[Rfam]
RNA sequence: UUACUUUCAUUAACAGUGCUUAAUAAAGUAU
Numbered sequence: 001u002u003a004c005u006u007u008c009a010u011u012a013a014c015a016g017u018g019c020u021u022a023a024u025a026a027a028g029u030a031u
Stems, first nucleotide, its partner, number of pairs: 002030006009024005014018001
Annotation:
This 31-nucleotide sequence from Sagittarius serpentarius belongs to the Rfam family "Iron response element II". Rfam describes the family as follows. IRE, TFRC, SLC40A1, SDHB, SLC11A2, CDC42BPA, ACO2, ALAS2_H.SAPIENS, CDC14A, EPAS1, ALAS2, qoxD, Hao1, NDUFS1, transferrin, Aconitate. On this family, see Koeller et al., Proc Natl Acad Sci U S A 1989: "A cytosolic protein binds to structural elements within the iron regulatory region of the transferrin receptor mRNA".